Rfam assigns this 76-nucleotide sequence to the family "L13-Bacteroidia ribosomal protein leader". It is one of the family's seed sequences.
[Rfam]
RNA sequence: AAGGGUACCCUUAAUGCCCAACCAAGAGUUAAUAGUUACGUCCUAUUUUGGCCUGGACGUAAUGGUUGGUAAGCUC
Number, nucleotide and partner (000 for none) at each position: 001a012002a011003g010004g009005g000006u000007a000008c000009c004010c003011u002012u001013a000014a000015u000016g000017c000018c000019c000020a000021a000022c000023c000024a000025a000026g000027a000028g000029u069030u068031a067032a066033u065034a000035g063036u062037u061038a060039c059040g058041u057042c056043c055044u000045a000046u000047u000048u000049u000050g000051g000052c000053c000054u000055g043056g042057a041058c040059g039060u038061a037062a036063u035064g000065g033066u032067u031068g030069g029070u000071a000072a000073g000074c000075u000076c000